[Rfam]
RNA sequence: AAAAAAGGUCGCUAGGGUUCCGAUUUAAUAUGAUGCCUUCAAUCUGCUUAAGCAGAAAAGCAAUCAUGCGAAAUGACUGGUCCGAGAGCAACCGAUGUGAAUGAAGCAUUGCUCAAUAACAUGUUUGUUUAGCACUGUUUAUCGCACAUUACACGGCGGGACAAAAGCCCGGGAGAU
Numbered sequence: 001a002a003a004a005a006a007g008g009u010c011g012c013u014a015g016g017g018u019u020c021c022g023a024u025u026u027a028a029u030a031u032g033a034u035g036c037c038u039u040c041a042a043u044c045u046g047c048u049u050a051a052g053c054a055g056a057a058a059a060g061c062a063a064u065c066a067u068g069c070g071a072a073a074u075g076a077c078u079g080g081u082c083c084g085a086g087a088g089c090a091a092c093c094g095a096u097g098u099g100a101a102u103g104a105a106g107c108a109u110u111g112c113u114c115a116a117u118a119a120c121a122u123g124u125u126u127g128u129u130u131a132g133c134a135c136u137g138u139u140u141a142u143c144g145c146a147c148a149u150u151a152c153a154c155g156g157c158g159g160g161a162c163a164a165a166a167g168c169c170c171g172g173g174a175g176a177u
Base pairs, nucleotide, nucleotide: 007093008092009091011089012088015083016082020080021079022077023074024073025072026071094150095149096148097147098146099145152172154175158170159169160168
RNA: Guanidine-I riboswitch aptamer